This 90-nucleotide RNA belongs to the Rfam family "c-di-GMP-II-GAG riboswitch aptamer".
Pairs were carried over by alignment from the consensus structure, which is taken from published work.
The literature on the family includes a 2017 paper in Proc Natl Acad Sci U S A by Weinberg et al., "Bioinformatic analysis of riboswitch structures uncovers variant classes with altered ligand specificity".

[Rfam]
RNA sequence: ACUCCUCGGGGGAGUCCCGACAGCGCGGCGUCCGGUCACGGUCGCCAGCCUCGUCGCGCUGGGCCAAUGGCGAGACCGGCCUCGGCGGGG
Number, nucleotide and partner (000 for none) at each position: 001a000002c089003u088004c087005c000006u085007c084008g083009g082010g081011g080012g000013a000014g064015u063016c000017c000018c000019g000020a000021c000022a000023g059024c058025g057026c056027g055028g054029c053030g052031u000032c000033c000034g000035g000036u000037c000038a000039c000040g077041g076042u073043c072044g071045c070046c069047a000048g000049c000050c000051u000052c030053g029054u028055c027056g026057c025058g024059c023060u000061g000062g000063g015064c014065c000066a000067a000068u000069g046070g045071c044072g043073a042074g000075a000076c041077c040078g000079g000080c011081c010082u009083c008084g007085g006086c000087g004088g003089g002090g000